The family of this 89-nucleotide sequence from Eubacterium aggregans is "c-di-GMP-I riboswitch aptamer".

RNA sequence: UACAUAAAUAGGCAAACCUGUCGAAAGGCAGUGGACGCAAAGCUAAAGGGUCUAAAACCGCAGUGCGGUAAGGGCAGCCAGUUGCAAAA
Numbered sequence: 001u002a003c004a005u006a007a008a009u010a011g012g013c014a015a016a017c018c019u020g021u022c023g024a025a026a027g028g029c030a031g032u033g034g035a036c037g038c039a040a041a042g043c044u045a046a047a048g049g050g051u052c053u054a055a056a057a058c059c060g061c062a063g064u065g066c067g068g069u070a071a072g073g074g075c076a077g078c079c080a081g082u083u084g085c086a087a088a089a
Stems, first nucleotide, its partner, number of pairs: 012038002017033001018031005041083004048079002050075003057069004

Pairs were carried over by alignment from the consensus structure, which is taken from published work.